[Rfam]
RNA sequence: AUACUUACCUGGACGGGGUCAAUGGGCGAGCAAGAAGGCUUGUGGCCUAGGUUGGUGACCUCCAUUGCACUUUGGAGGUGUGCCUGCCUAAGGUCGGCCCAAGUGGCCUGCUUACGUCAUAAUUUGUGGCAGCGGGGGCCUUCGUUCGCGUGGCCCCUA
Numbered sequence: 001a002u003a004c005u006u007a008c009c010u011g012g013a014c015g016g017g018g019u020c021a022a023u024g025g026g027c028g029a030g031c032a033a034g035a036a037g038g039c040u041u042g043u044g045g046c047c048u049a050g051g052u053u054g055g056u057g058a059c060c061u062c063c064a065u066u067g068c069a070c071u072u073u074g075g076a077g078g079u080g081u082g083c084c085u086g087c088c089u090a091a092g093g094u095c096g097g098c099c100c101a102a103g104u105g106g107c108c109u110g111c112u113u114a115c116g117u118c119a120u121a122a123u124u125u126g127u128g129g130c131a132g133c134g135g136g137g138g139c140c141u142u143c144g145u146u147c148g149c150g151u152g153g154c155c156c157c158u159a
Stems, first nucleotide, its partner, number of pairs: 012118004016048006023042005049089003053086001055083003060078002062075002091113003096107001098106002134158005141152001143150002
Record summary:
A member of the RNA family "U1 spliceosomal RNA" from Capsicum annuum, 159 nucleotides long. Pairs were carried over by alignment from the consensus structure, which is taken from published work. A search with the family's covariance model found it, with a score of 123 bits. Rfam classes the family as a spliceosomal small nuclear RNA. The organism belongs to Capsicum, within Eukaryota.